RNA sequence: ACUUGAUAUCGCUGACUCACUCAUAUAAUAGCAGGGAUAUGGCCUGCUAGUUUCUACCGAUCAACCGUAAAUUGAUCGACUAUGAGUGGCAAUGUCAGAAAC
Numbered sequence: 001a002c003u004u005g006a007u008a009u010c011g012c013u014g015a016c017u018c019a020c021u022c023a024u025a026u027a028a029u030a031g032c033a034g035g036g037a038u039a040u041g042g043c044c045u046g047c048u049a050g051u052u053u054c055u056a057c058c059g060a061u062c063a064a065c066c067g068u069a070a071a072u073u074g075a076u077c078g079a080c081u082a083u084g085a086g087u088g089g090c091a092a093u094g095u096c097a098g099a100a101a102c
Stems, first nucleotide, its partner, number of pairs: 018088008029049007058078007

Rfam assigns this 102-nucleotide RNA sequence from Anoxybacillus sp. B7M1 to the family "Purine riboswitch aptamer". The match comes from Rfam's covariance-model search (89 bits). Riboswitches are metabolite binding domains within certain messenger RNAs that serve as precision sensors for their corresponding targets. Allosteric rearrangement of mRNA structure is mediated by ligand binding, and this results in modulation of gene expression. A class of riboswitches that selectively recognises guanine and becomes saturated at concentrations as low as 5 nM. In Bacillus subtilis, this mRNA motif is located on at least five separate transcriptional units that together encode 17 genes that are mostly involved in purine transport and purine nucleotide biosynthesis. It has also been shown that some members of this family are specific for adenine instead. Taxonomically the source falls in Anoxybacillus (Bacteria, Bacillati, Bacillota, Bacilli).